[Rfam]
RNA sequence: GUGAAAUAAAUCACAUAACAAACAUACACCCCUUUGUUUGAACGUGAACAUUUCUCCCAUCCCCUUUGUGAAAAGAGUCGCCGAUAUUCCUAAUAGGAAAGAGGCGGCUCUUUUUU
Number, nucleotide and partner (000 for none) at each position: 001g000002u000003g054004a053005a052006a051007u050008a000009a000010a000011u047012c046013a045014c044015a000016u000017a000018a000019c040020a039021a038022a037023c036024a035025u000026a000027c000028a000029c000030c000031c000032c000033u000034u000035u024036g023037u022038u021039u020040g019041a000042a000043c000044g014045u013046g012047a011048a000049c000050a007051u006052u005053u004054c003055u000056c000057c000058c000059a000060u000061c000062c000063c000064c000065u000066u000067u000068g000069u000070g000071a000072a113073a112074a111075g110076a109077g108078u107079c106080g105081c104082c103083g000084a000085u000086a000087u000088u000089c000090c000091u000092a000093a000094u000095a000096g000097g000098a000099a000100a000101g000102a000103g082104g081105c080106g079107g078108c077109u076110c075111u074112u073113u072114u000115u000116u000
Background:
The family of this 116-nucleotide sequence from Lysinibacillus telephonicus is "RNA Staph. aureus E (RoxS)". From the family's description: It was shown to be regulated by the presence of nitric oxide (NO). In Bacillus subtilis it controls expression of genes with functions related to oxidative stress and oxidation-reduction reactions and it was renamed RoxS (for related to oxidative stress). For this family Rfam cites "A search for small noncoding RNAs in Staphylococcus aureus reveals a conserved sequence motif for regulation" (Geissmann et al., Nucleic Acids Res, 2009). It is annotated as a small RNA. Gene Ontology term of the family: regulation of translational initiation. The organism belongs to Lysinibacillus, within Bacteria.